[Rfam]
RNA sequence: CUGGCUUCAAGCGCGGGCCUCCCACUUAGUGUAUUUGACAAGCUGAGUUAGACACUCAGUAUGACGCGGUGUCAGUUUGUCAAAUACCCCAAGUGAGAGGUCGCUCAUC
Numbered sequence: 001c002u003g004g005c006u007u008c009a010a011g012c013g014c015g016g017g018c019c020u021c022c023c024a025c026u027u028a029g030u031g032u033a034u035u036u037g038a039c040a041a042g043c044u045g046a047g048u049u050a051g052a053c054a055c056u057c058a059g060u061a062u063g064a065c066g067c068g069g070u071g072u073c074a075g076u077u078u079g080u081c082a083a084a085u086a087c088c089c090c091a092a093g094u095g096a097g098a099g100g101u102c103g104c105u106c107a108u109c
Base pairs, nucleotide, nucleotide: 023095024094025093026092029089031087032086033085034084035083036082037081038080039079040078041077042076043075044074051073052072053071054070056068
A member of the RNA family "mir-223 microRNA precursor family" from Scleropages formosus, 109 nucleotides long.
A reference for the family is Lim et al. (2003), "Vertebrate microRNA genes", Science.
Pairs were carried over by alignment from the consensus structure, which was predicted with RNAalifold.
The organism belongs to Scleropages, within Eukaryota.
Its family is annotated with miRNA-mediated post-transcriptional gene silencing and RISC complex in the Gene Ontology.